[Rfam]
This 70-nucleotide RNA from Octodon degus belongs to the Rfam family "Bacillus-plasmid RNA". The family's RNA type in Rfam is small RNA. Taxonomically the source falls in Octodon (Eukaryota, Dipnotetrapodomorpha, Tetrapoda, Mammalia).

RNA sequence: GCUGCCAAUGGUACUGGUAAAAAGGGUAAAAUGAGGGCAAAUAAGUCCAAGAAUUGGCAGCCCCACAGCA
Numbered sequence: 001g002c003u004g005c006c007a008a009u010g011g012u013a014c015u016g017g018u019a020a021a022a023a024g025g026g027u028a029a030a031a032u033g034a035g036g037g038c039a040a041a042u043a044a045g046u047c048c049a050a051g052a053a054u055u056g057g058c059a060g061c062c063c064c065a066c067a068g069c070a
Stems, first nucleotide, its partner, number of pairs: 001061009
The match comes from Rfam's covariance-model search (33 bits).